[Rfam]
RNA sequence: AGGUGAGGUAGAGGUCGCGGUUUAUAAAAGUAUUCUAUUUGAGAUUAAGUGAAAUCUAUGAAAAUAGGAGAAAGGAUGAAUCGCCGAAGCUUUAUGAAAUCACUUUUUUUCAUUAAGGCUGGGGCUGUACUCAAAUAGGGGCAGAACUGUCACAAUUCCUUUGGAUUGUGGAGAACUAUCUUAAGA
Numbered sequence: 001a002g003g004u005g006a007g008g009u010a011g012a013g014g015u016c017g018c019g020g021u022u023u024a025u026a027a028a029a030g031u032a033u034u035c036u037a038u039u040u041g042a043g044a045u046u047a048a049g050u051g052a053a054a055u056c057u058a059u060g061a062a063a064a065u066a067g068g069a070g071a072a073a074g075g076a077u078g079a080a081u082c083g084c085c086g087a088a089g090c091u092u093u094a095u096g097a098a099a100u101c102a103c104u105u106u107u108u109u110u111c112a113u114u115a116a117g118g119c120u121g122g123g124g125c126u127g128u129a130c131u132c133a134a135a136u137a138g139g140g141g142c143a144g145a146a147c148u149g150u151c152a153c154a155a156u157u158c159c160u161u162u163g164g165a166u167u168g169u170g171g172a173g174a175a176c177u178a179u180c181u182u183a184a185g186a
Stems, first nucleotide, its partner, number of pairs: 006181006017084009033069008088120006094113006121148002125144004130139002150171007

This 186-nucleotide sequence from Lysinibacillus composti belongs to the Rfam family "Lysine riboswitch aptamer". The source organism's lineage runs through Bacteria, Bacillati, Caryophanales, Bacillaceae and Lysinibacillus. Gene Ontology term of the family: lysine biosynthetic process.